[Rfam]
RNA sequence: AGAAUUAGCAUUUCUCUACACGCACAAGCCUUUCGCCUUUUACUAAAGACUUCCGUGGAGAGGAACACUUAUGAGUUCAAUGUAUUUUUGGAGUGGCUUUGCUUCUUGCAGAGCC
Numbered sequence: 001a002g003a004a005u006u007a008g009c010a011u012u013u014c015u016c017u018a019c020a021c022g023c024a025c026a027a028g029c030c031u032u033u034c035g036c037c038u039u040u041u042a043c044u045a046a047a048g049a050c051u052u053c054c055g056u057g058g059a060g061a062g063g064a065a066c067a068c069u070u071a072u073g074a075g076u077u078c079a080a081u082g083u084a085u086u087u088u089u090g091g092a093g094u095g096g097c098u099u100u101g102c103u104u105c106u107u108g109c110a111g112a113g114c115c
Stems, first nucleotide, its partner, number of pairs: 003076001005074001008066001011063008026052003030048004096114006
Rfam assigns this 115-nucleotide RNA sequence from Oncorhynchus kisutch to the family "U5 spliceosomal RNA". The organism belongs to Oncorhynchus, within Eukaryota. A search with the family's covariance model found it, with a score of 62 bits. About the family: U5 RNA is a component of both types of known spliceosome. The precise function of this molecule is unknown, though it is known that the 5' loop is required for splice site selection and p220 binding, and that both the 3' stem-loop and the Sm site are important for Sm protein binding and cap methylation.